[Rfam]
RNA sequence: UACUUUUGCACCCUUGAUUAUCAAAACGGUAGUCAGUACAUAAAAAUCAUUUUAAUAAUAUUGGCAUG
Numbered sequence: 001u002a003c004u005u006u007u008g009c010a011c012c013c014u015u016g017a018u019u020a021u022c023a024a025a026a027c028g029g030u031a032g033u034c035a036g037u038a039c040a041u042a043a044a045a046a047u048c049a050u051u052u053u054a055a056u057a058a059u060a061u062u063g064g065c066a067u068g
Base pairs, nucleotide, nucleotide: 014036015035016034017033018032019031020030021029

Rfam assigns this 68-nucleotide sequence to the family "S15-Flavobacteria ribosomal protein leader".
Rfam classes the family as a cis-regulatory leader.
On this family, see Eckert and Weinberg, BMC Microbiol 2020: "Discovery of 20 novel ribosomal leader candidates in bacteria and archaea".
Its Rfam clan is "Ribosomal Protein S15 Leader clan".